Shown here is a 133-nucleotide sequence from Salvia splendens, a member of the family "MIR394 microRNA precursor family". Taxonomically the source falls in core Calosphace (Eukaryota, Gunneridae, Mentheae, Salvia subgen. Calosphace).
RNA sequence: CUAACAGAGUUUAUUGGCAUUCUGUCCACCUCCUCCUAUCAUUUUUUUUAAAAAAAGAUACAUAAUGUGAAAAUUAUAUAUAAAAAAUUGUUAGUUAGAGGAGGUGGGCAUACUGCCAACUGAUCUCUGUUGG
Dot-bracket structure: ..........(..((((((...(((((((((((((..............................................................)))))))))))))...))))))...)..........